[Rfam]
RNA sequence: UGAGAACUUUUUGAAUCAAGUAAUGUAGUGAUUCAAAAAGUUCUCAC
Numbered sequence: 001u002g003a004g005a006a007c008u009u010u011u012u013g014a015a016u017c018a019a020g021u022a023a024u025g026u027a028g029u030g031a032u033u034c035a036a037a038a039a040g041u042u043c044u045c046a047c
Base pairs, nucleotide, nucleotide: 001046002045003044004043005042006041007040008039009038010037011036012035013034014033015032016031017030018029
The family of this 47-nucleotide RNA sequence is "Plastid-ccsA-ndhD-2 3UTR RNA". The sequence is in the family's curated seed alignment. It is annotated as a cis-regulatory element. The family's consensus secondary structure was predicted with LocARNA. A reference for the family is Richter et al. (2023), "Retrograde signaling in plants: A critical review focusing on the GUN pathway and beyond", Plant Commun. Plastid ccsA-ndhD-2 is a non-coding RNA (ncRNA) recognised in plastids.